[Rfam]
RNA sequence: UCACAUAUAAUGUGACACAACAGGAUGAGAAACCGUGAUGCUGUAAACGCUUUCUGAUGUG
Numbered sequence: 001u002c003a004c005a006u007a008u009a010a011u012g013u014g015a016c017a018c019a020a021c022a023g024g025a026u027g028a029g030a031a032a033c034c035g036u037g038a039u040g041c042u043g044u045a046a047a048c049g050c051u052u053u054c055u056g057a058u059g060u061g
Base pairs, nucleotide, nucleotide: 002061003060004059005058012053014051016049021043022042023041025039026038
The record is a 61-nucleotide RNA sequence from Chaetops frenatus, which matches "Small nucleolar RNA Z39" in Rfam. Gene Ontology terms of the family: nucleolus and RNA processing. A search with the family's covariance model found it, with a score of 56 bits. The family has 5 seed sequences and 935 matches in Rfam 15.1. Rfam classes the family as a C/D-box small nucleolar RNA.